[Rfam]
RNA sequence: CUUGGGUAUGGAGACAUGUAUCCAAAGACUUGGUCAGGCAUGCUAGUAGGUGCGCUGUGUGCUUUAGCUGGGGUGCUUACCAUAGCCAUGCCCGUGCCUGUUAUUGUCAACAAU
Numbered sequence: 001c002u003u004g005g006g007u008a009u010g011g012a013g014a015c016a017u018g019u020a021u022c023c024a025a026a027g028a029c030u031u032g033g034u035c036a037g038g039c040a041u042g043c044u045a046g047u048a049g050g051u052g053c054g055c056u057g058u059g060u061g062c063u064u065u066a067g068c069u070g071g072g073g074u075g076c077u078u079a080c081c082a083u084a085g086c087c088a089u090g091c092c093c094g095u096g097c098c099u100g101u102u103a104u105u106g107u108c109a110a111c112a113a114u
Base pairs, nucleotide, nucleotide: 002113004111008107009106010105011104013102014101015100016099018097019096020095021094037077038076039075040074049063050062051061